[Rfam]
Nucleotides: 176
Stems, first nucleotide, its partner, number of pairs: 005171011017160003031150004036145003040141002056126003060122004065117001070115003074111003082103002087099004
Number, partner (000 for none) and nucleotide at each position: 001000a002000a003000c004000a005171c006170c007169c008168u009167a010166c011165u012164a013163u014162g015161u016000g017160c018159g019158u020000a021000u022000u023000g024000u025000u026000g027000a028000c029000u030000u031150a032149g033148u034147u035000u036145u037144g038143a039000u040141c041140c042000a043000a044000c045000a046000c047000c048000a049000u050000a051000a052000a053000a054000a055000a056126g057125g058124g059000a060122a061121u062120u063119c064000a065117g066000u067000g068000u069000u070115u071114a072113c073000g074111g075110a076109u077000c078000u079000a080000g081000u082103a083102a084000a085000u086000g087099c088098c089097u090096u091000c092000u093000a094000g095000a096090a097089a098088g099087g100000a101000c102083u103082u104000a105000c106000g107000a108000a109076a110075u111074c112000a113072g114071u115070a116000a117065c118000a119063g120062a121061a122060u123000a124058c125057c126056c127000a128000c129000c130000u131000g132000c133000g134000a135000g136000a137000g138000c139000a140041g141040g142000u143038u144037c145036a146000a147034a148033a149032c150031u151000c152000u153000c154000a155000a156000c157000u158019a159018c160017g161015g162014c163013a164012u165011a166010g167009u168008g169007g170006g171005g172000a173000a174000a175000a176000u